The record is a 127-nucleotide RNA from Garicola koreensis, which matches "FMN riboswitch aptamer (RFN element)" in Rfam.
RNA sequence: UACGUGCUUACGGGAUCGGUGAAAGUCCGAACCGGCGGUGACAGUCCGCGACCCAGUGCGAAGCGCACUGGUUGAACCGGUGGAAAUCCGGUACCGACAGUCAGAGUCUGGAUGGGAGGAGCACAGA
Numbered sequence: 001u002a003c004g005u006g007c008u009u010a011c012g013g014g015a016u017c018g019g020u021g022a023a024a025g026u027c028c029g030a031a032c033c034g035g036c037g038g039u040g041a042c043a044g045u046c047c048g049c050g051a052c053c054c055a056g057u058g059c060g061a062a063g064c065g066c067a068c069u070g071g072u073u074g075a076a077c078c079g080g081u082g083g084a085a086a087u088c089c090g091g092u093a094c095c096g097a098c099a100g101u102c103a104g105a106g107u108c109u110g111g112a113u114g115g116g117a118g119g120a121g122c123a124c125a126g127a
Stems, first nucleotide, its partner, number of pairs: 004124006017029003031107002033096002035049004044094002053071002076092005098110003